[Rfam]
RNA sequence: CUUCAGUGAGCCCAGCAGCAGAGGCCGCUCCACGUCCCGGCCCUGGCCGUAGGUCGCCAGCAACGCCUGCGCUUC
Dot-bracket structure: ..............((.......)).....(.(....((...(((.(.(....).).)))...))...).)....